RNA sequence: AGUGAGACUAGGGUAGCUCCCGAAAGCUGGAUACUUUGGCCAGUUGUCUCACAUAAUAUUACCAAAGA
Dot-bracket structure: .(((((((..(((.....)))....(((((....[[[.[))))).)))))))..........].]]].
Numbered sequence: 001a002g003u004g005a006g007a008c009u010a011g012g013g014u015a016g017c018u019c020c021c022g023a024a025a026g027c028u029g030g031a032u033a034c035u036u037u038g039g040c041c042a043g044u045u046g047u048c049u050c051a052c053a054u055a056a057u058a059u060u061a062c063c064a065a066a067g068a
Stems, first nucleotide, its partner, number of pairs: 002052007011021003026044005035067003039063001
The record is a 68-nucleotide RNA sequence from Candidatus Uabimicrobium amorphum, which matches "int-alpA RNA" in Rfam. Acidobacteria (1 example), Planctomycetes (1 example), Proteobacteria. It scores 40 bits against the family's covariance model. The source organism's lineage runs through Bacteria, Pseudomonadati, Planctomycetota, Candidatus Uabimicrobiaceae and Candidatus Uabimicrobium.